[Rfam]
RNA sequence: UGCAGUGAUGGUGUAAUUUGCGUCUGAGACAGUGAACAGUGACAGUUGCCUGCUGUCUUAUGCUGUCACAUGUUAUUGAUGAACCAUGAGUCUGAGCA
Numbered sequence: 001u002g003c004a005g006u007g008a009u010g011g012u013g014u015a016a017u018u019u020g021c022g023u024c025u026g027a028g029a030c031a032g033u034g035a036a037c038a039g040u041g042a043c044a045g046u047u048g049c050c051u052g053c054u055g056u057c058u059u060a061u062g063c064u065g066u067c068a069c070a071u072g073u074u075a076u077u078g079a080u081g082a083a084c085c086a087u088g089a090g091u092c093u094g095a096g097c098a
Base pairs, nucleotide, nucleotide: 001098002097003096021081022080023079024078032069033068034067039063040062041057042056043055044054045053
This 98-nucleotide sequence from Neogobius melanostomus belongs to the Rfam family "Small nucleolar RNA SNORD16". The family is grouped with related families in Rfam's "SNORD16 clan". For this family Rfam cites "A novel small nucleolar RNA (U16) is encoded inside a ribosomal protein intron and originates by processing of the pre-mRNA" (Fragapane et al., EMBO J, 1993). The family's consensus secondary structure was predicted with PFOLD. Rfam links the family to the GO terms RNA processing and nucleolus.